The record is a 256-nucleotide sequence from Labrenzia sp. THAF82, which matches "permuted transfer-messenger RNA" in Rfam. The source organism's lineage runs through Bacteria, Pseudomonadati, Pseudomonadota, Hyphomicrobiales and Labrenzia. A reference for the family is Williams and Bartel (1996), "Phylogenetic analysis of tmRNA secondary structure", RNA. It is annotated as a non-coding RNA gene.
RNA sequence: GAGCGUACUUCGGCAAGGCUGAUUGCUGAUCUGGACCCGGGGGCGGUACCCGGCAGCUCCACCAAAGAUACAUUGUUCAGUAGUGUGUCUUUGACGGGUCUGAAACAGAAUCGACAGGCAGACAAAAAGCUAAGACGCGCUUCGGUGAGACACCACUGUUAUCGGUUCAACGUUAGUAAAUGCAAAAGAUACUAACUCUUUCGCUAGCCUGAAAAGUGCCAACGAACACAAUGAGCGGGUAGCGGUAGCUGCCUAA
Numbered sequence: 001g002a003g004c005g006u007a008c009u010u011c012g013g014c015a016a017g018g019c020u021g022a023u024u025g026c027u028g029a030u031c032u033g034g035a036c037c038c039g040g041g042g043g044c045g046g047u048a049c050c051c052g053g054c055a056g057c058u059c060c061a062c063c064a065a066a067g068a069u070a071c072a073u074u075g076u077u078c079a080g081u082a083g084u085g086u087g088u089c090u091u092u093g094a095c096g097g098g099u100c101u102g103a104a105a106c107a108g109a110a111u112c113g114a115c116a117g118g119c120a121g122a123c124a125a126a127a128a129g130c131u132a133a134g135a136c137g138c139g140c141u142u143c144g145g146u147g148a149g150a151c152a153c154c155a156c157u158g159u160u161a162u163c164g165g166u167u168c169a170a171c172g173u174u175a176g177u178a179a180a181u182g183c184a185a186a187a188g189a190u191a192c193u194a195a196c197u198c199u200u201u202c203g204c205u206a207g208c209c210u211g212a213a214a215a216g217u218g219c220c221a222a223c224g225a226a227c228a229c230a231a232u233g234a235g236c237g238g239g240u241a242g243c244g245g246u247a248g249c250u251g252c253c254u255a256a
Base pairs, nucleotide, nucleotide: 001142002141003140004139005138015131026121027120028119031117032116033115037053038052039051040050041049054102055101056100058098059097060096143158144157145156146155